This 369-nucleotide RNA sequence from Sphingomonas rhizophila belongs to the Rfam family "Bacterial RNase P class A". By type it is a ribozyme.

RNA sequence: CCAGGGGACCGGGCGACCGCGGCUCAUUUCGAUGAGGCGAGGAAAGUCCGGGCUCCACGGAACGACGGUGCCGGGUAACACCCGGCGGGGCGGUUCGCCGCUUCAGGGACAGUGCCACAGAAAGCAUACCGCCCGGCUUCGGCCGGGUAAGGUCGAAAGGGUGCGGCAAGAGCGCACCGCGGAGGCGGCAACGGCUCCGGCGCGGUAAACCCCACCGGGUGCAAGACCGAAUAGGGGCGCCACAUGGGCCUGUUCCGGCCCGGCGCCCGGGUUGGUUGCUUGAGGCGAAGGGUAACCUUCGUCCUAGAGGAAUGGUCGCCCAGUCCCGCAAGGGAUGGACAGAACCCGGCUUACAGGUCCCCUGGCAUU
Numbered sequence: 001c002c003a004g005g006g007g008a009c010c011g012g013g014c015g016a017c018c019g020c021g022g023c024u025c026a027u028u029u030c031g032a033u034g035a036g037g038c039g040a041g042g043a044a045a046g047u048c049c050g051g052g053c054u055c056c057a058c059g060g061a062a063c064g065a066c067g068g069u070g071c072c073g074g075g076u077a078a079c080a081c082c083c084g085g086c087g088g089g090g091c092g093g094u095u096c097g098c099c100g101c102u103u104c105a106g107g108g109a110c111a112g113u114g115c116c117a118c119a120g121a122a123a124g125c126a127u128a129c130c131g132c133c134c135g136g137c138u139u140c141g142g143c144c145g146g147g148u149a150a151g152g153u154c155g156a157a158a159g160g161g162u163g164c165g166g167c168a169a170g171a172g173c174g175c176a177c178c179g180c181g182g183a184g185g186c187g188g189c190a191a192c193g194g195c196u197c198c199g200g201c202g203c204g205g206u207a208a209a210c211c212c213c214a215c216c217g218g219g220u221g222c223a224a225g226a227c228c229g230a231a232u233a234g235g236g237g238c239g240c241c242a243c244a245u246g247g248g249c250c251u252g253u254u255c256c257g258g259c260c261c262g263g264c265g266c267c268c269g270g271g272u273u274g275g276u277u278g279c280u281u282g283a284g285g286c287g288a289a290g291g292g293u294a295a296c297c298u299u300c301g302u303c304c305u306a307g308a309g310g311a312a313u314g315g316u317c318g319c320c321c322a323g324u325c326c327c328g329c330a331a332g333g334g335a336u337g338g339a340c341a342g343a344a345c346c347c348g349g350c351u352u353a354c355a356g357g358u359c360c361c362c363u364g365g366c367a368u369u
Base pairs, nucleotide, nucleotide: 001365002364003363004362005361006360007359008358009357010356011354012320013319014318015317016316017315018314020039021038023036024035025034026033027032044352045351046350048349049348050347051346052345053221055219056218062254066217067216068215069214070213071085072084073083074082075081086106087104088103089102090101091100092099093098107212108211112210113209114206115205116204129152130151131148132147133146134145135144136143137142160178161177162176163175164174165173179201180199181198182197183196184195186193187192225277226276227275228274235268236267237266238265239264240263246261247260248259249258250257284303285302286301287300288299289298290297291296